[Rfam]
RNA: MIR1862 microRNA precursor family
Organism: Oryza punctata
RNA sequence: UACUCCCUCCGUCCCAAAAAAAGCCAACCUCAUACUAGGAUGUGUCACAUCCUAGUACGAGGUUGACUUUUUUCGGGAUGGAGGGAGUAC
Dot-bracket structure: (((((((((((((((.(((((((.(((((((.(((..(((.........)))..))).))))))).))))))).))))))))))))))).